[Rfam]
RNA: FMN riboswitch aptamer (RFN element)
RNA sequence: AAAAAAUUUCGGGGCGGAGUGAAAUUCUCCACCGGCGGUUAAAGCCCGCGAGCCUUUUUGGCAGAUUUGGUGCAAUUCCAAAGCCGACAGUACAGUCUGGAAGAGAGAAAUUUUUG
Numbered sequence: 001a002a003a004a005a006a007u008u009u010c011g012g013g014g015c016g017g018a019g020u021g022a023a024a025u026u027c028u029c030c031a032c033c034g035g036c037g038g039u040u041a042a043a044g045c046c047c048g049c050g051a052g053c054c055u056u057u058u059u060g061g062c063a064g065a066u067u068u069g070g071u072g073c074a075a076u077u078c079c080a081a082a083g084c085c086g087a088c089a090g091u092a093c094a095g096u097c098u099g100g101a102a103g104a105g106a107g108a109a110a111u112u113u114u115u116g
Base pairs, nucleotide, nucleotide: 003114004113005112006111007110008109009108010107017029018028019027031096032095033086034085035049036048037047038046044084045083052062053061054060066082067081068080069079070078088099089098090097